About this RNA:
The record is a 101-nucleotide RNA sequence from Paenibacillus baekrokdamisoli, which matches "S10-Clostridia ribosomal protein leader" in Rfam. The family's RNA type in Rfam is cis-regulatory leader.
[Rfam]
RNA sequence: ACGUUGCGAUGAUGCAAGAGGUUGCCGACACACACGGCUCCUUUGCCAUGAGGGGCGUGUCGGGUUUUCUUGCGGAGUAUGUCCGAUACUAAAUUGGGCGA
Numbered sequence: 001a002c003g004u005u006g007c008g009a010u011g012a013u014g015c016a017a018g019a020g021g022u023u024g025c026c027g028a029c030a031c032a033c034a035c036g037g038c039u040c041c042u043u044u045g046c047c048a049u050g051a052g053g054g055g056c057g058u059g060u061c062g063g064g065u066u067u068u069c070u071u072g073c074g075g076a077g078u079a080u081g082u083c084c085g086a087u088a089c090u091a092a093a094u095u096g097g098g099c100g101a
Stems, first nucleotide, its partner, number of pairs: 014073003018069004025063007080100008
The match comes from Rfam's covariance-model search (44 bits).